The family of this 213-nucleotide sequence from Halocynthiibacter styelae is "permuted transfer-messenger RNA". Bacterial tmRNA, also known as 10Sa RNA or SsrA, is named for its dual tRNA and mRNA-like properties. Its role is to liberate the mRNA from a stalled ribosome. To accomplish this part of the tmRNA is used as a reading frame that ends in a translation stop signal. By type it is a non-coding RNA gene.
[Rfam]
RNA sequence: GAACAUAAACGCGCUCGUAAUAAGCGGAUCGGACCCGGGGGCGGUACCCGGCGACUCCACCACCAUCCUUCAUUUGAGGAUUUUGGGGUCGAAACAGGAUCGACGGACGUCUAAAGGGGUUAGCUUUGUUUCGGUGAGAUACCACCGUUAUCGGUUCGAUUUAAGCUAGUUGCAAAUGACAACAAAGCUCCGGCAAUGGCUCUGGCUGCGUAA
Number, nucleotide and partner (000 for none) at each position: 001g131002a130003a129004c128005a127006u000007a000008a000009a000010c000011g000012c000013g120014c119015u118016c117017g000018u000019a000020a000021u000022a000023a000024g000025c109026g108027g000028a000029u106030c105031g104032g000033a000034c000035c051036c050037g049038g048039g047040g000041g000042c000043g000044g000045u000046a000047c039048c038049c037050g036051g035052c091053g090054a089055c088056u087057c086058c085059a000060c000061c000062a000063c000064c000065a000066u000067c000068c000069u000070u000071c000072a000073u000074u000075u000076g000077a000078g000079g000080a000081u000082u000083u000084u000085g058086g057087g056088g055089u054090c053091g052092a000093a000094a000095c000096a000097g000098g000099a000100u000101c000102g000103a000104c031105g030106g029107a000108c026109g025110u000111c000112u000113a000114a000115a000116g000117g016118g015119g014120u013121u000122a000123g000124c000125u000126u000127u005128g004129u003130u002131u001132c147133g146134g145135u144136g000137a000138g000139a000140u000141a000142c000143c000144a135145c134146c133147g132148u000149u000150a000151u000152c000153g000154g000155u000156u000157c000158g000159a000160u000161u000162u000163a000164a000165g000166c000167u000168a000169g000170u000171u000172g000173c000174a000175a000176a000177u000178g000179a000180c000181a000182a000183c000184a000185a000186a000187g000188c000189u000190c000191c000192g000193g000194c000195a000196a000197u000198g000199g000200c000201u000202c000203u000204g000205g000206c000207u000208g000209c000210g000211u000212a000213a000